[Rfam]
Source information: Shown here is a 107-nucleotide RNA from Castanea mollissima, a member of the family "Small nucleolar RNA Z107/R87". The organism belongs to Castanea, within Eukaryota. The literature on the family includes a 2001 paper in J Mol Biol by Barneche et al., "Identification of 66 box C/D snoRNAs in Arabidopsis thaliana: extensive gene duplications generated multiple isoforms predicting new ribosomal RNA 2'-O-methylation sites". The match comes from Rfam's covariance-model search (68 bits). The family's RNA type in Rfam is C/D-box small nucleolar RNA.

RNA sequence: GAUCACAGUGAUGUCCACAAUAAAUUCAAGCUCAACAGACCAGAAAGCAAGCUCAUCUACACUCUAGAGAACUUUGAGUGUUAACAACCCCGCUGACCUGAGUGAUC
Numbered sequence: 001g002a003u004c005a006c007a008g009u010g011a012u013g014u015c016c017a018c019a020a021u022a023a024a025u026u027c028a029a030g031c032u033c034a035a036c037a038g039a040c041c042a043g044a045a046a047g048c049a050a051g052c053u054c055a056u057c058u059a060c061a062c063u064c065u066a067g068a069g070a071a072c073u074u075u076g077a078g079u080g081u082u083a084a085c086a087a088c089c090c091c092g093c094u095g096a097c098c099u100g101a102g103u104g105a106u107c
Stems, first nucleotide, its partner, number of pairs: 001107006